[Rfam]
The family of this 134-nucleotide RNA sequence from Otolemur garnettii is "U11 spliceosomal RNA". NCBI's taxonomy places the organism under Eukaryota, Deuterostomia, Chordata, Vertebrata, Otolemur. Clan: U1 clan. The family's consensus secondary structure is taken from published work. It scores 97 bits against the family's covariance model.
RNA sequence: AAAAAGGCCUUUUGUCAUGAGUGGCACACGUGGGGCAACUCAACUGCUCUUUAUGUGGAAUCGACAUCAAGAGAUUUUGGAAGCGUAAUUUUUUGGUACUUGGGCAGCUGGUGAUCAUUGGUCCUGGGGCCCAU
Numbered sequence: 001a002a003a004a005a006g007g008c009c010u011u012u013u014g015u016c017a018u019g020a021g022u023g024g025c026a027c028a029c030g031u032g033g034g035g036c037a038a039c040u041c042a043a044c045u046g047c048u049c050u051u052u053a054u055g056u057g058g059a060a061u062c063g064a065c066a067u068c069a070a071g072a073g074a075u076u077u078u079g080g081a082a083g084c085g086u087a088a089u090u091u092u093u094u095g096g097u098a099c100u101u102g103g104g105c106a107g108c109u110g111g112u113g114a115u116c117a118u119u120g121g122u123c124c125u126g127g128g129g130c131c132c133a134u
Stems, first nucleotide, its partner, number of pairs: 009083004013026005027055002030052001032050006056079007102132004108127004113123004